[Rfam]
The record is a 77-nucleotide sequence from Cupriavidus sp. HPC(L), which matches "Cupriavidus-1 RNA" in Rfam. Pairs were carried over by alignment from the consensus structure, which is taken from published work. A search with the family's covariance model found it, with a score of 53 bits. It is annotated as a small RNA.
RNA sequence: CUUGCAUUGCGGUGACCGGCCGACGAGCCGAAGGCGGUGCAAGAAGCAUACCGAGUGUUCGCGAUGGCGAAUGCUGG
Dot-bracket structure: (((((((.(((....)((((......))))...))).))))))........(.(((((((((....))))))))).)